[Rfam]
RNA sequence: ACAAAGGCUCUUUUAAGAGCCACUUCAUUGUCUCAGAAAAUGGCUC
Numbered sequence: 001a002c003a004a005a006g007g008c009u010c011u012u013u014u015a016a017g018a019g020c021c022a023c024u025u026c027a028u029u030g031u032c033u034c035a036g037a038a039a040a041u042g043g044c045u046c
Stems, first nucleotide, its partner, number of pairs: 006021006
RNA: Histone 3' UTR stem-loop